[Rfam]
RNA sequence: GCUGCCGCUUGCACCUGCUGCUGGCACCCAGUGCUGGUCCUGAUCACUUGGCGCUGUCAGCGGGUGUGAGCAGUGGCUG
Number, nucleotide and partner (000 for none) at each position: 001g000002c000003u000004g074005c073006c000007g071008c070009u069010u068011g067012c066013a065014c064015c063016u062017g061018c060019u059020g058021c000022u056023g055024g054025c053026a000027c051028c050029c000030a000031g000032u000033g000034c000035u000036g000037g000038u000039c000040c000041u000042g000043a000044u000045c000046a000047c000048u000049u000050g028051g027052c000053g025054c024055u023056g022057u000058c020059a019060g018061c017062g016063g015064g014065u013066g012067u011068g010069a009070g008071c007072a000073g005074u004075g000076g000077c000078u000079g000
The family of this 79-nucleotide RNA from Myotis brandtii is "mir-9198 microRNA precursor family". The organism belongs to Myotis, within Eukaryota. The family's consensus secondary structure was predicted with RNAalifold.